[Rfam]
Nucleotides: 131
Stems, first nucleotide, its partner, number of pairs: 002057005015044007025029001069124003073121001091109007
Number, partner (000 for none) and nucleotide at each position: 001000c002057c003056c004055u005054c006053c007000u008000a009000c010000a011000a012000a013000g014000g015044c016043g017042u018041g019040u020039c021038c022000u023000u024000u025029g026000c027000u028000c029025c030000c031000u032000g033000u034000c035000u036000u037000u038021g039020g040019a041018u042017g043016c044015g045000u046000a047000a048000g049000a050000a051000c052000u053006g054005g055004a056003g057002g058000c059000a060000a061000a062000g063000a064000a065000a066000u067000g068000a069124g070123g071122a072000u073121u074000u075000g076000g077000a078000g079000a080000g081000a082000u083000c084000u085000c086000g087000g088000g089000c090000c091109g092108g093107c094106u095105u096104g097103c098000u099000c100000c101000c102000c103097g104096c105095a106094g107093g108092c109091u110000c111000a112000a113000g114000a115000u116000c117000a118000c119000c120000u121073g122071u123070c124069c125000c126000a127000c128000a129000a130000u131000a
Shown here is a 131-nucleotide RNA from Cavia porcellus, a member of the family "Small nucleolar RNA SNORA38". By type it is an H/ACA-box small nucleolar RNA. About the family: ACA38 is a member of the H/ACA class of snoRNA that guide the sites of modification of uridines to pseudouridines. The family's consensus secondary structure was predicted with RNAfold.